The record is a 175-nucleotide RNA from Lacrimispora algidixylanolytica, which matches "Lysine riboswitch aptamer" in Rfam. It scores 123 bits against the family's covariance model. Lineage of the source: Bacteria > Bacillota > Lachnospirales > Lachnospiraceae > Lacrimispora.
RNA sequence: UAAUAGAGUAGAGGUUGCGUCGCUUAUUAGUACUCUGUCCGAUGUAUCAGGUACAGAUGAGGGCAGAGGGAAGGAAGAGACGCCGAAGAUAGGUACGUUCUGAGCGUAUCCAUCUGGGCAUAUGGUUAAGAGCCAUAUGACUGUCAUCCAAGUUGGAUGGGGAGCUACUUAAAGA
Number, nucleotide and partner (000 for none) at each position: 001u000002a000003a000004u000005a000006g170007a169008g168009u167010a166011g165012a000013g000014g000015u000016u000017g083018c082019g081020u080021c079022g000023c077024u076025u075026a000027u000028u000029a000030g000031u000032a000033c068034u067035c066036u065037g064038u063039c062040c061041g000042a000043u000044g000045u000046a000047u000048c000049a000050g000051g000052u000053a000054c000055a000056g000057a000058u000059g000060a000061g040062g039063g038064c037065a036066g035067a034068g033069g000070g000071a000072a000073g000074g000075a025076a024077g023078a000079g021080a020081c019082g018083c017084c000085g000086a000087a115088g114089a113090u112091a000092g110093g109094u108095a107096c106097g105098u104099u000100c000101u000102g000103a000104g098105c097106g096107u095108a094109u093110c092111c000112a090113u089114c088115u087116g142117g141118g000119c139120a138121u137122a136123u135124g134125g133126u132127u000128a000129a000130g000131a000132g126133c125134c124135a123136u122137a121138u120139g119140a000141c117142u116143g000144u160145c159146a158147u157148c156149c155150a154151a000152g000153u000154u150155g149156g148157a147158u146159g145160g144161g000162g000163a000164g000165c011166u010167a009168c008169u007170u006171a000172a000173a000174g000175a000